[Rfam]
RNA sequence: AAUUGGCGACCGGUUGAGUAUCCUAACGGGCUUUUCAAAUUCGGUCACCCAUAGACAAUAGGAGACGUGUUAGUGGCCCGUAUCGCUGGCAUUAACGUUCCUGAC
Numbered sequence: 001a002a003u004u005g006g007c008g009a010c011c012g013g014u015u016g017a018g019u020a021u022c023c024u025a026a027c028g029g030g031c032u033u034u035u036c037a038a039a040u041u042c043g044g045u046c047a048c049c050c051a052u053a054g055a056c057a058a059u060a061g062g063a064g065a066c067g068u069g070u071u072a073g074u075g076g077c078c079c080g081u082a083u084c085g086c087u088g089g090c091a092u093u094a095a096c097g098u099u100c101c102u103g104a105c
Stems, first nucleotide, its partner, number of pairs: 005049002008046005022089002027080004035104003
Alpha operon ribosome binding site: a 105-nucleotide RNA sequence from Pseudidiomarina indica. The source organism's lineage runs through Bacteria, Pseudomonadati, Alteromonadales, Idiomarinaceae and Pseudidiomarina. A search with the family's covariance model found it, with a score of 85 bits. By type it is a cis-regulatory element.